[Rfam]
RNA sequence: CUUUACCCCCGCGUCAGAUGCCGCGGCCUUACGGGGCGGCGGUCAGCACAAGGGUAUAAAGGGGUUCAUUUCCAUAUCGGAUUGACCCGGCAGAAAAUAAAACCGCCGUGAACGCCGCCAGUAACCGCAAGGCGAACGCCGCCACGCACGG
Numbered sequence: 001c002u003u004u005a006c007c008c009c010c011g012c013g014u015c016a017g018a019u020g021c022c023g024c025g026g027c028c029u030u031a032c033g034g035g036g037c038g039g040c041g042g043u044c045a046g047c048a049c050a051a052g053g054g055u056a057u058a059a060a061g062g063g064g065u066u067c068a069u070u071u072c073c074a075u076a077u078c079g080g081a082u083u084g085a086c087c088c089g090g091c092a093g094a095a096a097a098u099a100a101a102a103c104c105g106c107c108g109u110g111a112a113c114g115c116c117g118c119c120a121g122u123a124a125c126c127g128c129a130a131g132g133c134g135a136a137c138g139c140c141g142c143c144a145c146g147c148a149c150g151g
Base pairs, nucleotide, nucleotide: 004056005055006054007053008052013049014048020043021042022041023040024039026037027036028035077090078089079088106151107150108149109148110147114142115141117139118138125132
RNA: RT-14 RNA
Organism: bacterium 1XD42-8